[Rfam]
RNA: Bacterial RNase P class A
RNA sequence: AGAGUCGAUCGGACAGUCGCUGCCUUCGCAAGAAGGGGGAGGAAAGUCCGGGCUCCAUAGGGCGGAGUGCCAGGUAAUGCCUGGGAGGCGUGAGCCUACGGAAAGUGCCACAGAAAAUAACCGCCUAAGCGUUUCGGCGCCGGUAAGGGUGAAAAGGUGCGGUAAGAGCGCACCGCACGGCUGGCAACAGUCCGUGGCUAGGUAAACCCCACUCGGAGCAAGACCAAAUAGGGUUCCAUCGGCGUGGCCCGCGCUGGAACCGGGUAGGUUGCUAAAGGCGUGCAGUGAUGUACGUCGUAGAGGAAUGGCUGUCCUCGACAGAACCCGGCUUACAGAUCGACUCUCCUC
Number, nucleotide and partner (000 for none) at each position: 001a344002g343003a342004g341005u340006c339007g338008a337009u336010c335011g333012g313013a312014c311015a310016g309017u308018c307019g000020c039021u038022g000023c036024c035025u034026u033027c032028g000029c000030a000031a000032g027033a026034a025035g024036g023037g000038g021039g020040a000041g000042g000043a000044a331045a330046g329047u000048c328049c327050g326051g325052g324053c218054u217055c216056c215057a000058u000059a000060g250061g249062g248063c247064g000065g214066a213067g212068u211069g210070c084071c083072a082073g081074g080075u000076a000077a000078u000079g000080c074081c073082u072083g071084g070085g099086a097087g096088g095089c094090g000091u000092g000093a000094g089095c088096c087097u086098a000099c085100g209101g208102a000103a000104a000105g207106u206107g203108c202109c201110a000111c000112a000113g000114a000115a000116a000117a000118u000119a000120a000121c148122c147123g144124c143125c142126u000127a000128a000129g140130c139131g138132u137133u000134u000135c000136g000137g132138c131139g130140c129141c000142g125143g124144u123145a000146a000147g122148g121149g000150u000151g000152a000153a000154a000155a000156g174157g173158u172159g171160c170161g169162g000163u000164a000165a000166g000167a000168g000169c161170g160171c159172a158173c157174c156175g198176c196177a195178c194179g193180g192181c190182u189183g188184g000185c000186a000187a000188c183189a182190g181191u000192c180193c179194g178195u177196g176197g000198c175199u000200a000201g109202g108203u107204a000205a000206a106207c105208c101209c100210c069211a068212c067213u066214c065215g056216g055217a054218g053219c000220a000221a000222g270223a269224c268225c267226a000227a000228a000229u000230a000231g000232g261233g260234u259235u258236c257237c256238a000239u000240c000241g255242g254243c253244g252245u251246g000247g063248c062249c061250c060251g245252c244253g243254c242255u241256g237257g236258a235259a234260c233261c232262g000263g000264g000265u000266a000267g225268g224269u223270u222271g000272c000273u000274a000275a000276a000277g296278g295279c294280g293281u292282g291283c290284a289285g000286u000287g000288a000289u284290g283291u282292a281293c280294g279295u278296c277297g000298u000299a000300g000301a000302g000303g000304a000305a000306u000307g018308g017309c016310u015311g014312u013313c012314c000315u000316c000317g000318a000319c000320a000321g000322a000323a000324c052325c051326c050327g049328g048329c046330u045331u044332a000333c011334a000335g010336a009337u008338c007339g006340a005341c004342u003343c002344u001345c000346c000347u000348c000